[Rfam]
Rfam assigns this 84-nucleotide RNA from Trifolium pratense to the family "Small nucleolar RNA SNORD24". The base pairs follow the family's consensus structure, which was predicted with PFOLD. Taxonomically the source falls in Trifolium (Eukaryota, Magnoliopsida, fabids, Fabales). The family has 14 seed sequences and 2,843 matches in Rfam 15.1.
RNA sequence: GGCCAAUGAUGCAUGGAAAUAUUUGCUACUCUUGAUGGGUUUUUCCCAUUUGAUGAUUUUUUAUCCACCAAGAUCUCUGAGGCC
Numbered sequence: 001g002g003c004c005a006a007u008g009a010u011g012c013a014u015g016g017a018a019a020u021a022u023u024u025g026c027u028a029c030u031c032u033u034g035a036u037g038g039g040u041u042u043u044u045c046c047c048a049u050u051u052g053a054u055g056a057u058u059u060u061u062u063a064u065c066c067a068c069c070a071a072g073a074u075c076u077c078u079g080a081g082g083c084c
Stems, first nucleotide, its partner, number of pairs: 001084004